[Rfam]
RNA sequence: UGUCAGAGUAGAAGCGUUCAGCAUAGUCAGUCACAUCGACUGUUAUGUGGGUCAUUGCUCAGAAA
Numbered sequence: 001u002g003u004c005a006g007a008g009u010a011g012a013a014g015c016g017u018u019c020a021g022c023a024u025a026g027u028c029a030g031u032c033a034c035a036u037c038g039a040c041u042g043u044u045a046u047g048u049g050g051g052u053c054a055u056u057g058c059u060c061a062g063a064a065a
Stems, first nucleotide, its partner, number of pairs: 006060005015050001019051001021048007
Rfam assigns this 65-nucleotide RNA sequence from Acinetobacter higginsii to the family "Xanthine riboswitch aptamer (NMT1 RNA)". On this family, see Xu et al., Nucleic Acids Res 2021: "Insights into xanthine riboswitch structure and metal ion-mediated ligand recognition". Rfam links the family to the GO term purine nucleobase binding. The sequence is in the family's curated seed alignment.